Rfam assigns this 61-nucleotide RNA from Qipengyuania gaetbuli to the family "terC RNA". The family's consensus secondary structure is taken from published work. NCBI's taxonomy places the organism under Bacteria, Pseudomonadati, Alphaproteobacteria, Sphingomonadales, Qipengyuania. It scores 60 bits against the family's covariance model.
[Rfam]
RNA sequence: AAUGCGGACCGGGCCCCUCUGGCGUGCGCCUCUUGUGCGAACGUGAUGUCGGACCGCAUCG
Numbered sequence: 001a002a003u004g005c006g007g008a009c010c011g012g013g014c015c016c017c018u019c020u021g022g023c024g025u026g027c028g029c030c031u032c033u034u035g036u037g038c039g040a041a042c043g044u045g046a047u048g049u050c051g052g053a054c055c056g057c058a059u060c061g
Stems, first nucleotide, its partner, number of pairs: 006055002009052004022044004027039003